RNA sequence: CACACACGGGCUUCGGGCCUGGCCGGGAGACAUCCGGUCCGGUCCUCCGGUGGCGGGGGUCCCGUCAUUGCCCGUGGAGGUUCAACCGGAAAGGAUAAAAAGC
Numbered sequence: 001c002a003c004a005c006a007c008g009g010g011c012u013u014c015g016g017g018c019c020u021g022g023c024c025g026g027g028a029g030a031c032a033u034c035c036g037g038u039c040c041g042g043u044c045c046u047c048c049g050g051u052g053g054c055g056g057g058g059g060u061c062c063c064g065u066c067a068u069u070g071c072c073c074g075u076g077g078a079g080g081u082u083c084a085a086c087c088g089g090a091a092a093g094g095a096u097a098a099a100a101a102g103c
Stems, first nucleotide, its partner, number of pairs: 001079001003077001005076007016045002024036003052066005
Notes
A member of the RNA family "rpsB sRNA" from Zhengella mangrovi, 103 nucleotides long. Rfam classes the family as a small RNA. On this family, see Meyer et al., BMC Genomics 2009: "Identification of candidate structured RNAs in the marine organism 'Candidatus Pelagibacter ubique'".